[Rfam]
RNA sequence: GACUCGCAAAGCCAACCCCGUCGCGAGGCGGGCGACGGAAAGCCGCGGAUCUCCCCAACCUGAGACAGCCGGGCCGCCGGG
Numbered sequence: 001g002a003c004u005c006g007c008a009a010a011g012c013c014a015a016c017c018c019c020g021u022c023g024c025g026a027g028g029c030g031g032g033c034g035a036c037g038g039a040a041a042g043c044c045g046c047g048g049a050u051c052u053c054c055c056c057a058a059c060c061u062g063a064g065a066c067a068g069c070c071g072g073g074c075c076g077c078c079g080g081g
Base pairs, nucleotide, nucleotide: 012038013037017032018031019030020029021028022027042074043073044072046071047070048069050065051064052063053062
RNA: c-di-GMP-I riboswitch aptamer